[Rfam]
This 58-nucleotide RNA from Symplocastrum torsivum belongs to the Rfam family "Nitrogen stress-induced RNA 1".
A search with the family's covariance model found it, with a score of 53 bits.
The family's RNA type in Rfam is small RNA.
For this family Rfam cites "Heterocyst-specific transcription of NsiR1, a non-coding RNA encoded in a tandem array of direct repeats in cyanobacteria" (Ionescu et al., J Mol Biol, 2010).
Pairs were carried over by alignment from the consensus structure.

RNA sequence: UGGUAGAUGCACCCUGAUAAUUUAAACCCCCGCCUAUUCUAGGUUGGGGGUUUUCUCU
Numbered sequence: 001u002g003g004u005a006g007a008u009g010c011a012c013c014c015u016g017a018u019a020a021u022u023u024a025a026a027c028c029c030c031c032g033c034c035u036a037u038u039c040u041a042g043g044u045u046g047g048g049g050g051u052u053u054u055c056u057c058u
Stems, first nucleotide, its partner, number of pairs: 002013003027050006033043004